[Rfam]
RNA: Caenorhabditis snoRNA ceN84
RNA sequence: AUGCCACAGUGUCUGGGCAAAGUAGGCUGUUUUUGAUAGUACUAACUUAAUCCACUGAUGGCUAUAGAAAAUGUAUUGUGUAAUCCCCGAACACCAUGUGGUGUAUCGGAUUCAUGACAUUCCAACAAAC
Numbered sequence: 001a002u003g004c005c006a007c008a009g010u011g012u013c014u015g016g017g018c019a020a021a022g023u024a025g026g027c028u029g030u031u032u033u034u035g036a037u038a039g040u041a042c043u044a045a046c047u048u049a050a051u052c053c054a055c056u057g058a059u060g061g062c063u064a065u066a067g068a069a070a071a072u073g074u075a076u077u078g079u080g081u082a083a084u085c086c087c088c089g090a091a092c093a094c095c096a097u098g099u100g101g102u103g104u105a106u107c108g109g110a111u112u113c114a115u116g117a118c119a120u121u122c123c124a125a126c127a128a129a130c
Stems, first nucleotide, its partner, number of pairs: 003062003007057004015053003020048003023044003026040005074124001078120004087109004091104005